[Rfam]
RNA sequence: GAUAUUGUUCGUAGUGUAGCGAACAUGAUAAUCAAAAAAAAUACACGGUUAAGA
Numbered sequence: 001g002a003u004a005u006u007g008u009u010c011g012u013a014g015u016g017u018a019g020c021g022a023a024c025a026u027g028a029u030a031a032u033c034a035a036a037a038a039a040a041a042u043a044c045a046c047g048g049u050u051a052a053g054a
Stems, first nucleotide, its partner, number of pairs: 006025006014046004
RNA: 6A RNA